Background: Shown here is a 67-nucleotide RNA from Domibacillus mangrovi, a member of the family "Bacillaceae-1 RNA".
[Rfam]
RNA sequence: AUGAAGAGAACUCAAGUAAAGAGCGCCGCGUCCUGCGGGAACAUUUGAGUGACCAGGAUCAGCCUGA
Numbered sequence: 001a002u003g004a005a006g007a008g009a010a011c012u013c014a015a016g017u018a019a020a021g022a023g024c025g026c027c028g029c030g031u032c033c034u035g036c037g038g039g040a041a042c043a044u045u046u047g048a049g050u051g052a053c054c055a056g057g058a059u060c061a062g063c064c065u066g067a
Base pairs, nucleotide, nucleotide: 011049012048013047014046015045016044017043026038027037028036029035054066055065056064057063
The family's RNA type in Rfam is small RNA.
The organism belongs to Domibacillus, within Bacteria.